[Rfam]
RNA sequence: GCCUGCUGCUUUCUUGGACGUUUCCUCCCUAAACUCGGCGGCGCCUUCGGGUGCCGCCUUUUUUUUGCCCCUU
Numbered sequence: 001g002c003c004u005g006c007u008g009c010u011u012u013c014u015u016g017g018a019c020g021u022u023u024c025c026u027c028c029c030u031a032a033a034c035u036c037g038g039c040g041g042c043g044c045c046u047u048c049g050g051g052u053g054c055c056g057c058c059u060u061u062u063u064u065u066u067g068c069c070c071c072u073u
Stems, first nucleotide, its partner, number of pairs: 008019001010017002037058009

The family of this 73-nucleotide sequence from Roseicella frigidaeris is "Makes More Granules Regulator RNA (mmgR)". The base pairs follow the family's consensus structure. The organism belongs to Roseicella, within Bacteria. The family is grouped with related families in Rfam's "suhB sRNA clan". SuhB later renamed mmgR (makes more granules regulator) was a putative non-coding RNA found multiple times in the Agrobacterium tumefaciens genome and related alpha-proteobacteria.